[Rfam]
RNA sequence: AUCCGAUAAUGGCAAACUUAUCGAAAGAUAGGGACGCAAAGCCACGGGUCUACGGUCCUAUAAUAGACUAAGAUCGCCGGGUUACCGAA
Numbered sequence: 001a002u003c004c005g006a007u008a009a010u011g012g013c014a015a016a017c018u019u020a021u022c023g024a025a026a027g028a029u030a031g032g033g034a035c036g037c038a039a040a041g042c043c044a045c046g047g048g049u050c051u052a053c054g055g056u057c058c059u060a061u062a063a064u065a066g067a068c069u070a071a072g073a074u075c076g077c078c079g080g081g082u083u084a085c086c087g088a089a
Stems, first nucleotide, its partner, number of pairs: 012037002017032006040083004045079003048074003055068003
Dot-bracket structure: ...........((...((((((....))))))...))..((((.((((((....(((........)))...)))..)))))))......
c-di-GMP-I riboswitch aptamer: an 89-nucleotide RNA sequence from Tenuibacillus multivorans. Rfam 15.1 lists 5,092 matches to the family in 1,772 species. Pairs were carried over by alignment from the consensus structure, which is taken from published work. Lineage of the source: Bacteria > Bacillati > Bacillota > Caryophanales > Tenuibacillus.